[Rfam]
RNA sequence: GUCAACCACCCCACGGCUAAAGCCGGGGGCUUGCGAUGAGCAGGCCCGAGGUUGACCAGCCUCAGCCAGGGCCGUAGGGCCAUCGGGCUACGUUAUCCCGGUCAUGACACCCUGGAGUGCGCGAGCCAGCUCCAGGCCCUGUCGCGGGCGGUUAAACAGGCAUACGGGGGCGAAGCCAGUGCCGCUCGCAUGACAAGCCGGGAUAACAUUGGCGAGGCUCACGUGAC
Numbered sequence: 001g002u003c004a005a006c007c008a009c010c011c012c013a014c015g016g017c018u019a020a021a022g023c024c025g026g027g028g029g030c031u032u033g034c035g036a037u038g039a040g041c042a043g044g045c046c047c048g049a050g051g052u053u054g055a056c057c058a059g060c061c062u063c064a065g066c067c068a069g070g071g072c073c074g075u076a077g078g079g080c081c082a083u084c085g086g087g088c089u090a091c092g093u094u095a096u097c098c099c100g101g102u103c104a105u106g107a108c109a110c111c112c113u114g115g116a117g118u119g120c121g122c123g124a125g126c127c128a129g130c131u132c133c134a135g136g137c138c139c140u141g142u143c144g145c146g147g148g149c150g151g152u153u154a155a156a157c158a159g160g161c162a163u164a165c166g167g168g169g170g171c172g173a174a175g176c177c178a179g180u181g182c183c184g185c186u187c188g189c190a191u192g193a194c195a196a197g198c199c200g201g202g203a204u205a206a207c208a209u210u211g212g213c214g215a216g217g218c219u220c221a222c223g224u225g226a227c
Stems, first nucleotide, its partner, number of pairs: 001056007010029002012026001016023002030044004059213003064089004092207011107142002111136008123220005144189009156180002159177002163174001165172002
Record summary
This 227-nucleotide RNA from Alicyclobacillus acidocaldarius belongs to the Rfam family "HNH endonuclease-associated RNA and ORF (HEARO) RNA". Taxonomically the source falls in Alicyclobacillus acidocaldarius subsp. acidocaldarius (Bacteria, Bacillati, Bacilli, Alicyclobacillus acidocaldarius). The family's RNA type in Rfam is non-coding RNA gene.